[Rfam]
RNA: SAM-I/IV (S-adenosyl methionine) riboswitch aptamer
RNA sequence: GAAGCACAUCAAGAGACGAGUAGCACUCGCACCAACCUGCUUUCUUGAGCAAGGUGGUCGCCUAGAAGGCGAUGUGGUCUGAACAGACAACAACACAAGUGCUA
Numbered sequence: 001g002a003a004g005c006a007c008a009u010c011a012a013g014a015g016a017c018g019a020g021u022a023g024c025a026c027u028c029g030c031a032c033c034a035a036c037c038u039g040c041u042u043u044c045u046u047g048a049g050c051a052a053g054g055u056g057g058u059c060g061c062c063u064a065g066a067a068g069g070c071g072a073u074g075u076g077g078u079c080u081g082a083a084c085a086g087a088c089a090a091c092a093a094c095a096c097a098a099g100u101g102c103u104a
Stems, first nucleotide, its partner, number of pairs: 006075005015030001017029005031058003036054003039050003044099004077088004